Rfam assigns this 81-nucleotide RNA sequence from Araneus ventricosus to the family "Vault RNA". The literature on the family includes a 2009 paper in Mol Biol Evol by Stadler et al., "Evolution of Vault RNAs". From the family's description: This family of RNAs are found as part of the enigmatic vault ribonucleoprotein complex. The complex consists of a major vault protein (MVP), two minor vault proteins (VPARP and TEP1), and several small untranslated RNA molecules. It has been suggested that the vault complex is involved in drug resistance.
RNA sequence: AUGCAGGCUUUGGUCGAGUGGUUACUUCGCUUUGUCAUCUUGUAGAUGUAAAACCAACCACUGACGCCGUUCUGCAGCUUU
Number, nucleotide and partner (000 for none) at each position: 001a000002u076003g075004c074005a073006g072007g071008c000009u000010u000011u000012g000013g065014u064015c063016g062017a000018g061019u060020g059021g058022u000023u000024a000025c000026u052027u051028c000029g049030c048031u000032u000033u000034g000035u000036c000037a000038u000039c000040u000041u000042g000043u000044a000045g000046a000047u000048g030049u029050a000051a027052a026053a000054c000055c000056a000057a000058c021059c020060a019061c018062u016063g015064a014065c013066g000067c000068c000069g000070u000071u007072c006073u005074g004075c003076a002077g000078c000079u000080u000081u000
By type it is a non-coding RNA gene. The family has 73 seed sequences and 2,873 matches in Rfam 15.1.